[Rfam]
The record is an 82-nucleotide RNA sequence from Paenibacillus spiritus, which matches "c-di-GMP-I-GGC riboswitch aptamer" in Rfam. Pairs were carried over by alignment from the consensus structure, which is taken from published work. For this family Rfam cites "Recognition of the bacterial second messenger cyclic diguanylate by its cognate riboswitch" (Kulshina et al., Nat Struct Mol Biol, 2009). Taxonomically the source falls in Paenibacillus (Bacteria, Bacillota, Bacilli, Paenibacillaceae). Rfam 15.1 lists 1,298 matches to the family in 717 species.

RNA sequence: AACGAUAAUAGCAAACCUGUCGAAAGGCAGGGACGCAAAGCUACAGGGCCUUCCCGCGAGGGGUGGCAGCCAGUUGCCGAAA
Number, nucleotide and partner (000 for none) at each position: 001a000002a000003c079004g078005a000006u000007a000008a000009u000010a000011g036012c035013a000014a000015a000016c031017c030018u029019g028020u027021c026022g000023a000024a000025a000026g021027g020028c019029a018030g017031g016032g000033a000034c069035g012036c011037a000038a000039a075040g074041c073042u072043a000044c000045a000046g071047g070048g067049c066050c065051u000052u000053c000054c000055c000056g000057c000058g000059a000060g000061g000062g000063g000064u000065g050066g049067c048068a000069g034070c047071c046072a042073g041074u040075u039076g000077c000078c004079g003080a000081a000082a000